[Rfam]
RNA sequence: AACGUUCAUCUAUCUAGACGGAAGUAAGGCUUCUAGCCUGAAGGAACGCAUU
Number, nucleotide and partner (000 for none) at each position: 001a000002a000003c048004g047005u046006u045007c044008a000009u018010c017011u016012a000013u000014c000015u000016a011017g010018a009019c000020g000021g049022a000023a000024g000025u000026a000027a039028g038029g037030c036031u035032u000033c000034u000035a031036g030037c029038c028039u027040g000041a000042a000043g000044g007045a006046a005047c004048g003049c021050a000051u000052u000
Description
Glutamine riboswitch aptamer (glnA leader): a 52-nucleotide RNA sequence. For this family Rfam cites "Bacterial aptamers that selectively bind glutamine" (Ames and Breaker, RNA Biol, 2011). The sequence is in the family's curated seed alignment.